[Rfam]
RNA sequence: CACGUUCAUCACCUUACAGGGUGACGGAAGUAGACGAAAGUCGAAGGAACGCAUG
Number, nucleotide and partner (000 for none) at each position: 001c000002a000003c051004g050005u049006u048007c047008a000009u024010c023011a022012c021013c020014u000015u000016a000017c000018a000019g000020g013021g012022u011023g010024a009025c000026g000027g052028a000029a000030g000031u000032a000033g042034a041035c040036g000037a000038a000039a000040g035041u034042c033043g000044a000045a000046g000047g007048a006049a005050c004051g003052c027053a000054u000055g000
The family of this 55-nucleotide sequence is "Glutamine riboswitch aptamer (glnA leader)".
On this family, see Ames and Breaker, RNA Biol 2011: "Bacterial aptamers that selectively bind glutamine".